[Rfam]
Rfam assigns this 84-nucleotide RNA from Perca fluviatilis to the family "mir-16 microRNA precursor family". The family has 14 seed sequences and 4,705 matches in Rfam 15.1. NCBI's taxonomy places the organism under Eukaryota, Chordata, Osteoglossocephalai, Eupercaria, Perca.

RNA sequence: GUAUUACUGUAGUAUUACAGUAGUAUUACUGUAGUAUUACUGUAGUAUUACAGUAGUAUUACUGUAGUAUUACUGCAGUAUUAC
Numbered sequence: 001g002u003a004u005u006a007c008u009g010u011a012g013u014a015u016u017a018c019a020g021u022a023g024u025a026u027u028a029c030u031g032u033a034g035u036a037u038u039a040c041u042g043u044a045g046u047a048u049u050a051c052a053g054u055a056g057u058a059u060u061a062c063u064g065u066a067g068u069a070u071u072a073c074u075g076c077a078g079u080a081u082u083a084c
Base pairs, nucleotide, nucleotide: 001084002083003082005080006079007078010077011074012073013072014071016069017068018067020062022060023059024058025057026056027055028054029053